[Rfam]
RNA sequence: AACCUAAACCGCCUUGGCGGCAUGGUUGUUAUAAAAACCAUCGUGAAAUAACAGCUCGUCGUCAGAGCACUAUUUCACGAUGGUCGGUACUGGAAACGGUAUCGGGUAGCUUCGGCUAUC
Numbered sequence: 001a002a003c004c005u006a007a008a009c010c011g012c013c014u015u016g017g018c019g020g021c022a023u024g025g026u027u028g029u030u031a032u033a034a035a036a037a038c039c040a041u042c043g044u045g046a047a048a049u050a051a052c053a054g055c056u057c058g059u060c061g062u063c064a065g066a067g068c069a070c071u072a073u074u075u076c077a078c079g080a081u082g083g084u085c086g087g088u089a090c091u092g093g094a095a096a097c098g099g100u101a102u103c104g105g106g107u108a109g110c111u112u113c114g115g116c117u118a119u120c
Base pairs, nucleotide, nucleotide: 001027002026003025004024009020010019011018012017038083039082040081041080042079043078044077045076046075047074048073054068055067056066057065085104086103087102088101089100090099091098092097105120106119107118108117109116110115
Source information: Shown here is a 120-nucleotide RNA sequence, a member of the family "LOOT RNA".